[Rfam]
The family of this 51-nucleotide RNA sequence is "Exoribonuclease-resistant RNA (xrRNA) plant-infecting virus (class 3)". From the family's description: Exoribonuclease-resistant RNA (xrRNA) plant-infecting virus (class 3) is a ncRNA that was reported in Plant viruses. The literature on the family includes a 2024 paper in bioRxiv [Preprint] by Gezelle et al., "The pseudoknot structure of a viral RNA reveals a conserved mechanism for programmed exoribonuclease resistance". By type it is a cis-regulatory element.
RNA sequence: AAACUAGCCGAGCAUACGUAAGUUGCAAGCGUCGGGAGUUUAGUCUUACAC
Numbered sequence: 001a002a003a004c005u006a007g008c009c010g011a012g013c014a015u016a017c018g019u020a021a022g023u024u025g026c027a028a029g030c031g032u033c034g035g036g037a038g039u040u041u042a043g044u045c046u047u048a049c050a051c
Stems, first nucleotide, its partner, number of pairs: 001040002008035002012030002018049005